[Rfam]
RNA sequence: CGGCGCAUUGGAGAUGGCAUUCCUCCAUUAACAAACCGCUGCGCCCGUAGCAGCUGAUGAUGCCUACAGAAAC
Numbered sequence: 001c002g003g004c005g006c007a008u009u010g011g012a013g014a015u016g017g018c019a020u021u022c023c024u025c026c027a028u029u030a031a032c033a034a035a036c037c038g039c040u041g042c043g044c045c046c047g048u049a050g051c052a053g054c055u056g057a058u059g060a061u062g063c064c065u066a067c068a069g070a071a072a073c
Base pairs, nucleotide, nucleotide: 010026011025012024013023016064017063018062019061020060021059038054039053040052041051
Shown here is a 73-nucleotide RNA sequence from Pseudomonas syringae group genomosp. 3, a member of the family "Fluoride riboswitch aptamer (crcB RNA motif)". The source organism's lineage runs through Bacteria, Gammaproteobacteria, Pseudomonadales, Pseudomonas and Pseudomonas syringae pv. tomato. Rfam's curators put it in the seed alignment. The base pairs follow the family's consensus structure, which is taken from published work.